[Rfam]
RNA: c-di-AMP riboswitch aptamer (ydaO/yuaA leader)
Organism: Blastococcus sp. TF02-8
RNA sequence: CCGGGUGGCCCGCUGAGCCGUCCACCUGCGGACGGACCGGGGACCCACCGAUUCACCGGGUGAAUCCGGGGCGCAGUUGAGUGCUCCCGGUAGGGCAUCUUCCAGCCCGAACCCGUCAGCUAACCCGGUAGGCGUUCAGGAAGAACGG
Number, nucleotide and partner (000 for none) at each position: 001c000002c000003g000004g000005g000006u000007g000008g000009c000010c000011c134012g133013c132014u131015g000016a000017g000018c035019c034020g033021u032022c031023c030024a000025c000026c000027u000028g000029c000030g023031g022032a021033c020034g019035g018036a129037c128038c127039g126040g125041g124042g000043a000044c000045c000046c000047a000048c000049c000050g000051a000052u000053u000054c000055a000056c000057c000058g114059g113060g112061u000062g000063a000064a000065u000066c090067c089068g088069g087070g086071g085072c000073g000074c000075a000076g000077u000078u000079g000080a000081g000082u000083g000084c000085u071086c070087c069088c068089g067090g066091u000092a000093g108094g107095g106096c105097a000098u000099c000100u000101u000102c000103c000104a000105g096106c095107c094108c093109g000110a000111a000112c060113c059114c058115g000116u000117c000118a000119g000120c000121u000122a000123a000124c041125c040126c039127g038128g037129u036130a000131g014132g013133c012134g011135u000136u000137c000138a000139g000140g000141a000142a000143g000144a000145a000146c000147g000148g000